[Rfam]
RNA sequence: AUUGAACAGAAAUCAUUCGUCGGGCCUUCCGCAAGACCCACGAUUCUACCAAUUUUUGCAAAUCCCUUCCCUUUUAGGGGGGAAUG
Numbered sequence: 001a002u003u004g005a006a007c008a009g010a011a012a013u014c015a016u017u018c019g020u021c022g023g024g025c026c027u028u029c030c031g032c033a034a035g036a037c038c039c040a041c042g043a044u045u046c047u048a049c050c051a052a053u054u055u056u057u058g059c060a061a062a063u064c065c066c067u068u069c070c071c072u073u074u075u076a077g078g079g080g081g082g083a084a085u086g
Stems, first nucleotide, its partner, number of pairs: 022039003026035003062085002065082006

Shown here is an 86-nucleotide RNA sequence from Caenorhabditis bovis, a member of the family "SmY spliceosomal RNA".
Rfam 15.1 lists 408 matches to the family in 67 species.
Taxonomically the source falls in Caenorhabditis (Eukaryota, Protostomia, Chromadorea, Rhabditida).
The match comes from Rfam's covariance-model search (45 bits).
On this family, see Jia et al., BMC Mol Biol 2007: "Systematic identification of non-coding RNA 2,2,7-trimethylguanosine cap structures in Caenorhabditis elegans".
The family's consensus secondary structure is taken from published work.